Streptomyces RNA 1601: a 215-nucleotide sequence from Streptomyces coelicolor.
Identified by deep sequencing of transcriptome at the end of exponential growth phase. Appears longer on northern blot than sequencing transcript. Streptomyces specific.
Rfam's curators put it in the seed alignment.
The literature on the family includes a 2011 paper in RNA Biol by Vockenhuber et al., "Deep sequencing-based identification of small non-coding RNAs in Streptomyces coelicolor".
The base pairs follow the family's consensus structure.
[Rfam]
RNA sequence: AACGACCGGUCGGACACGCACGCCCAUGGCAGCGGAUCCGGCCCACAAGUGGAGGCUUCGAACUCCCACCUGGCCGUCCUCCGGACGGCGGGUCACCGGUCAGGCGGUUCCGUCCCACGGCGGUGACCAGCCCGAAAUCGCGCCCCGCGGUCAUAGCGGCGGUGCUCCGGUAGCAGUUCGAGGAGCCCCGCCUGUGAUCGUCCGGGGCAUUUUUU
Numbered sequence: 001a002a003c004g005a006c007c008g009g010u011c012g013g014a015c016a017c018g019c020a021c022g023c024c025c026a027u028g029g030c031a032g033c034g035g036a037u038c039c040g041g042c043c044c045a046c047a048a049g050u051g052g053a054g055g056c057u058u059c060g061a062a063c064u065c066c067c068a069c070c071u072g073g074c075c076g077u078c079c080u081c082c083g084g085a086c087g088g089c090g091g092g093u094c095a096c097c098g099g100u101c102a103g104g105c106g107g108u109u110c111c112g113u114c115c116c117a118c119g120g121c122g123g124u125g126a127c128c129a130g131c132c133c134g135a136a137a138u139c140g141c142g143c144c145c146c147g148c149g150g151u152c153a154u155a156g157c158g159g160c161g162g163u164g165c166u167c168c169g170g171u172a173g174c175a176g177u178u179c180g181a182g183g184a185g186c187c188c189c190g191c192c193u194g195u196g197a198u199c200g201u202c203c204g205g206g207g208c209a210u211u212u213u214u215u
Stems, first nucleotide, its partner, number of pairs: 004101006012039002040094005046072002049069004053064002073089007103132003107128001110123005142208006148200003156195002158192005164186005